[Rfam]
RNA sequence: UGGUUAAAAAGCUCGUAGUUGGAUUAUAAAGAUUGUGUAAUGAGCAUCUUGGAUGUUAUUUUCAUUACCAUCUUAUUUUUUUAUUAUAUUAGAAAUAAUAUAAUAACUGUUACUUUGAAUAAAUCAGAGGGUUCAAACCAGGCAUUAUAUGCUUGUAUGGUCUAGCAUGGAAUAACACUAUAGAAAAAGUUAGUGUGGUUUCACUAUCUUUUUCAUGAUUAAUAGGAACAAACGGGGGCAUUCGUAUCGCUACGUUAGAGGUGAAAUUCUUGGACCGUAGCGAGACGUCCUACUGCGAAAGCAUUUGCCAAGAAUGUUUUCAUUAAUCAAGAACGAAAGUUAGAGGUUCGAAGGCGAUCAGAUACCGCCCUAGUUCUAACCGUAAACUAUGCCUACUAGGUGUAUGAAUUAUUAGUUAUAAUAAUUUAUGCACCUUCUCGGAAACGAAAGUCUUUCGGUUCCGGGGGAAGUAUGGUUGCAAAGCUGAAACUUAAAGGAAU
Numbered sequence: 001u002g003g004u005u006a007a008a009a010a011g012c013u014c015g016u017a018g019u020u021g022g023a024u025u026a027u028a029a030a031g032a033u034u035g036u037g038u039a040a041u042g043a044g045c046a047u048c049u050u051g052g053a054u055g056u057u058a059u060u061u062u063c064a065u066u067a068c069c070a071u072c073u074u075a076u077u078u079u080u081u082u083a084u085u086a087u088a089u090u091a092g093a094a095a096u097a098a099u100a101u102a103a104u105a106a107c108u109g110u111u112a113c114u115u116u117g118a119a120u121a122a123a124u125c126a127g128a129g130g131g132u133u134c135a136a137a138c139c140a141g142g143c144a145u146u147a148u149a150u151g152c153u154u155g156u157a158u159g160g161u162c163u164a165g166c167a168u169g170g171a172a173u174a175a176c177a178c179u180a181u182a183g184a185a186a187a188a189g190u191u192a193g194u195g196u197g198g199u200u201u202c203a204c205u206a207u208c209u210u211u212u213u214c215a216u217g218a219u220u221a222a223u224a225g226g227a228a229c230a231a232a233c234g235g236g237g238g239c240a241u242u243c244g245u246a247u248c249g250c251u252a253c254g255u256u257a258g259a260g261g262u263g264a265a266a267u268u269c270u271u272g273g274a275c276c277g278u279a280g281c282g283a284g285a286c287g288u289c290c291u292a293c294u295g296c297g298a299a300a301g302c303a304u305u306u307g308c309c310a311a312g313a314a315u316g317u318u319u320u321c322a323u324u325a326a327u328c329a330a331g332a333a334c335g336a337a338a339g340u341u342a343g344a345g346g347u348u349c350g351a352a353g354g355c356g357a358u359c360a361g362a363u364a365c366c367g368c369c370c371u372a373g374u375u376c377u378a379a380c381c382g383u384a385a386a387c388u389a390u391g392c393c394u395a396c397u398a399g400g401u402g403u404a405u406g407a408a409u410u411a412u413u414a415g416u417u418a419u420a421a422u423a424a425u426u427u428a429u430g431c432a433c434c435u436u437c438u439c440g441g442a443a444a445c446g447a448a449a450g451u452c453u454u455u456c457g458g459u460u461c462c463g464g465g466g467g468a469a470g471u472a473u474g475g476u477u478g479c480a481a482a483g484c485u486g487a488a489a490c491u492u493a494a495a496g497g498a499a500u
Stems, first nucleotide, its partner, number of pairs: 001463003009460001011334001013332002018327003225321004229316002233312001237309004243287002247283008258269003295302002339380006349373001353369004391459003395451002398435003403430011439446002465492003474485004
Dot-bracket structure: (((.....(.(.((...(((............................................................................................................................................................................................................((((((..(...((((..((..((((((((...(((......)))......))))))))..)).......((....))...))))..)..)).))))...)))...)).)....((((((....(...((((.........))))...).))))))..........(((.((.(((..(((((((((((......)))))))))))..)))...((....))...)).....))))))).(((......((((....))))....)))........

Overview:
A member of the RNA family "Eukaryotic small subunit ribosomal RNA" from Strongyloides ratti, 500 nucleotides of a longer RNA. The sequence is in the family's curated seed alignment. The family's consensus secondary structure is taken from published work.